About this RNA:
The record is a 42-nucleotide sequence from Jongsikchunia kroppenstedtii, which matches "L31-Actinobacteria ribosomal protein leader" in Rfam. Pairs were carried over by alignment from the consensus structure, which is taken from published work. It is annotated as a cis-regulatory leader. A reference for the family is Eckert and Weinberg (2020), "Discovery of 20 novel ribosomal leader candidates in bacteria and archaea", BMC Microbiol. Lineage of the source: Bacteria > Bacillati > Actinomycetes > Gordoniaceae > Jongsikchunia kroppenstedtii.
RNA sequence: CCGGUUCCGGUUCACACCAGCUGCGCUGGUGACCCGGCGACC
Numbered sequence: 001c002c003g004g005u006u007c008c009g010g011u012u013c014a015c016a017c018c019a020g021c022u023g024c025g026c027u028g029g030u031g032a033c034c035c036g037g038c039g040a041c042c
Base pairs, nucleotide, nucleotide: 003042004041005040007037008036009035010034015031016030017029018028019027020026021025